[Rfam]
RNA sequence: GUUACUAGAGGUAGAGAGCGUCCCUCUACGCGCCCUAGUGGUCAAAAGAGAUGUGGGAAAGGGGACACCCACCUAGUAAC
Number, nucleotide and partner (000 for none) at each position: 001g080002u079003u078004a077005c076006u075007a074008g073009a000010g000011g029012u028013a027014g026015a025016g000017a000018g000019c000020g066021u065022c064023c063024c062025u015026c014027u013028a012029c011030g000031c048032g042033c041034c040035c000036u000037a000038g000039u000040g034041g033042u032043c000044a000045a000046a000047a000048g031049a000050g000051a000052u000053g072054u071055g070056g069057g068058a000059a000060a000061g000062g024063g023064g022065a021066c020067a000068c057069c056070c055071a054072c053073c008074u007075a006076g005077u004078a003079a002080c001
RNA: skipping-rope RNA